[Rfam]
A member of the RNA family "TPP riboswitch aptamer (THI element)" from Bacillus sp. FJAT-27231, 105 nucleotides long. Vitamin B(1) in its active form thiamin pyrophosphate (TPP) is an essential coenzyme that is synthesised by coupling of pyrimidine and thiazole moieties in bacteria. NCBI's taxonomy places the organism under Bacteria, Bacillati, Bacillota, Bacillaceae, Bacillus. The family's consensus secondary structure is taken from published work.
RNA sequence: AUGUGUCCUUGGGGGUGCUUGCAAAAGCUGAGAGAGGUAGAUUGCCUUAACCCUUAUCACCUGAACUGGAUAAUGCCAGCGUAGGGAAGAGGUCGUAUAAAUGAU
Numbered sequence: 001a002u003g004u005g006u007c008c009u010u011g012g013g014g015g016u017g018c019u020u021g022c023a024a025a026a027g028c029u030g031a032g033a034g035a036g037g038u039a040g041a042u043u044g045c046c047u048u049a050a051c052c053c054u055u056a057u058c059a060c061c062u063g064a065a066c067u068g069g070a071u072a073a074u075g076c077c078a079g080c081g082u083a084g085g086g087a088a089g090a091g092g093u094c095g096u097a098u099a100a101a102u103g104a105u
Stems, first nucleotide, its partner, number of pairs: 007092004011054004017028004035047005060085004066079004